[Rfam]
RNA sequence: GCGGAUAGGUGUCCGCUGGGAUGUAGCCGUAUUGGCUGAACCAUAAA
Number, nucleotide and partner (000 for none) at each position: 001g016002c015003g014004g013005a012006u000007a000008g000009g000010u000011g000012u005013c004014c003015g002016c001017u043018g042019g041020g000021a000022u000023g000024u000025a037026g036027c035028c034029g000030u000031a000032u000033u000034g028035g027036c026037u025038g000039a000040a000041c019042c018043a017044u000045a000046a000047a000
The record is a 47-nucleotide RNA, which matches "eL15-Euryarchaeota ribosomal protein leader" in Rfam.
The base pairs follow the family's consensus structure, which is taken from published work.